[Rfam]
RNA sequence: UGCAGAGUAGACAAAGAGGCGUUAAGUGCUCGAUGAACGGGGAGUUGUCAUCGGGACGAAAAGUUGUUCUUGCGGUUUCUUUGUCGCAUCCCGCUGCU
Number, nucleotide and partner (000 for none) at each position: 001u000002g097003c096004a095005g094006a000007g000008u000009a000010g085011a084012c083013a082014a081015a080016g079017a078018g077019g076020c074021g073022u072023u000024a000025a000026g057027u056028g000029c055030u054031c053032g052033a051034u050035g049036a048037a000038c000039g000040g091041g090042g089043a000044g087045u000046u000047g000048u036049c035050a034051u033052c032053g031054g030055g029056a027057c026058g000059a000060a000061a071062a070063g069064u000065u000066g000067u000068u000069c063070u062071u061072g022073c021074g020075g000076u019077u018078u017079c016080u015081u014082u013083g012084u011085c010086g000087c044088a000089u042090c041091c040092c000093g000094c005095u004096g003097c002098u000
THF (Tetrahydrofolate) riboswitch aptamer: a 98-nucleotide RNA sequence from Sharpea azabuensis. Lineage of the source: Bacteria > Bacillati > Erysipelotrichia > Erysipelotrichales > Sharpea. The base pairs follow the family's consensus structure, which is taken from published work. From the family's description: Tetrahydrofolate (THF) riboswitch was first reported for Ames et al. as an RNA motif in 5' untranslated (5'-UTR)regions of folate transport and biosynthesis genes in Firmicutes genomes. Rfam links the family to the GO term tetrahydrofolate metabolic process.